[Rfam]
RNA sequence: UACCGAGGAUUUUUUCGGCAGUUAACUGCAGCCGGUUUCAAAUUCCUCGGCAGUUAACUGCCGAUGGAAUA
Numbered sequence: 001u002a003c004c005g006a007g008g009a010u011u012u013u014u015u016c017g018g019c020a021g022u023u024a025a026c027u028g029c030a031g032c033c034g035g036u037u038u039c040a041a042a043u044u045c046c047u048c049g050g051c052a053g054u055u056a057a058c059u060g061c062c063g064a065u066g067g068a069a070u071a
Base pairs, nucleotide, nucleotide: 012067013066015064016063017062018061019060020059021058022057023056024055025054026053027052028051029050
This 71-nucleotide RNA from Medicago truncatula belongs to the Rfam family "MIR2629 microRNA precursor family". The source organism's lineage runs through Eukaryota, Tracheophyta, Euphyllophyta, Papilionoideae and Medicago. The match comes from Rfam's covariance-model search (65 bits).